[Rfam]
RNA sequence: GGGCCAAUGAUGAGUACUUUAUAUUGCUCUGAGGAGCAGUGAUGACUUAAAUAUCAAGUACAAUGGCAUGACGCUGAGGCCC
Dot-bracket structure: ((((((.((..............................................................)).))..))))
Numbered sequence: 001g002g003g004c005c006a007a008u009g010a011u012g013a014g015u016a017c018u019u020u021a022u023a024u025u026g027c028u029c030u031g032a033g034g035a036g037c038a039g040u041g042a043u044g045a046c047u048u049a050a051a052u053a054u055c056a057a058g059u060a061c062a063a064u065g066g067c068a069u070g071a072c073g074c075u076g077a078g079g080c081c082c
Stems, first nucleotide, its partner, number of pairs: 001082004005076002008073002